Notes: A member of the RNA family "Nuclear RNase P" from Apolygus lucorum, 286 nucleotides long. Rfam classes the family as a ribozyme. The family has 116 seed sequences and 3,848 matches in Rfam 15.1.
[Rfam]
RNA sequence: CUUGGUGUGAUCGCAGCAGUGGGGGCUACUCGCGAGGCCCUUGUGGUCGUUUCGCCCUCGGGAAGGUCUGAGUUCGAGCCCUCGUACCCACCUAGCAGGAGGGUGCCCAUCAUACGGGCAGCGAGGCAACAGAAAAAAGCGAGUCAGUCCAGCCACCAGUUCUGGGACUAAUGAGGACAUGCCAGGCUGCACUCGAUGGGAGAGUCUCGUGGCUGGCAAUUUGAGUUAAAUAGCUGUGGUGUGCUCUGACGGGUGCAUAACUCAAUUCAGACUAGUCCAUGCCAAG
Numbered sequence: 001c002u003u004g005g006u007g008u009g010a011u012c013g014c015a016g017c018a019g020u021g022g023g024g025g026c027u028a029c030u031c032g033c034g035a036g037g038c039c040c041u042u043g044u045g046g047u048c049g050u051u052u053c054g055c056c057c058u059c060g061g062g063a064a065g066g067u068c069u070g071a072g073u074u075c076g077a078g079c080c081c082u083c084g085u086a087c088c089c090a091c092c093u094a095g096c097a098g099g100a101g102g103g104u105g106c107c108c109a110u111c112a113u114a115c116g117g118g119c120a121g122c123g124a125g126g127c128a129a130c131a132g133a134a135a136a137a138a139g140c141g142a143g144u145c146a147g148u149c150c151a152g153c154c155a156c157c158a159g160u161u162c163u164g165g166g167a168c169u170a171a172u173g174a175g176g177a178c179a180u181g182c183c184a185g186g187c188u189g190c191a192c193u194c195g196a197u198g199g200g201a202g203a204g205u206c207u208c209g210u211g212g213c214u215g216g217c218a219a220u221u222u223g224a225g226u227u228a229a230a231u232a233g234c235u236g237u238g239g240u241g242u243g244c245u246c247u248g249a250c251g252g253g254u255g256c257a258u259a260a261c262u263c264a265a266u267u268c269a270g271a272c273u274a275g276u277c278c279a280u281g282c283c284a285a286g
Base pairs, nucleotide, nucleotide: 001286002285003284004283007280008279009278012238013237014236015235016234017233021059022058023057024056025055036048037047038046039045068270069269070268071267072266077214078213079212080211087103088102089101091099092098104120105119106118107117108116121210122209123208124207125206126205127204140195141194142193143192144191239258240257241256242255243254244253245252

The family is grouped with related families in Rfam's "RNaseP clan".